[Rfam]
Group II catalytic intron D1-D4-4: a 137-nucleotide RNA sequence from Orientia tsutsugamushi. Rfam describes the family as follows. Group II introns are found in rRNA, tRNA and mRNA of organelles in fungi, plants and protists, and also in mRNA in bacteria. The organism belongs to Orientia tsutsugamushi, within Bacteria. A reference for the family is Chu et al. (2001), "Control of branch-site choice by a group II intron", EMBO J. Rfam links the family to the GO term Group II intron splicing. The pairing is the family consensus, mapped onto this sequence.
RNA sequence: CAGUGUGAGGUAAGCAUACUAGAUGAAGAGUUAGAAAUCUAUAGUUAGGAUAGCAGCAUGGAGAGAAAUUGAGAUGUUGGAACAUAUCUACAAACUUAUCAAAAGGAUAAGAGCAAAUUAUUCAAGCUGCAACGAAA
Numbered sequence: 001c002a003g004u005g006u007g008a009g010g011u012a013a014g015c016a017u018a019c020u021a022g023a024u025g026a027a028g029a030g031u032u033a034g035a036a037a038u039c040u041a042u043a044g045u046u047a048g049g050a051u052a053g054c055a056g057c058a059u060g061g062a063g064a065g066a067a068a069u070u071g072a073g074a075u076g077u078u079g080g081a082a083c084a085u086a087u088c089u090a091c092a093a094a095c096u097u098a099u100c101a102a103a104a105g106g107a108u109a110a111g112a113g114c115a116a117a118u119u120a121u122u123c124a125a126g127c128u129g130c131a132a133c134g135a136a137a
Stems, first nucleotide, its partner, number of pairs: 020041005049088004054079006063070002095111006113130003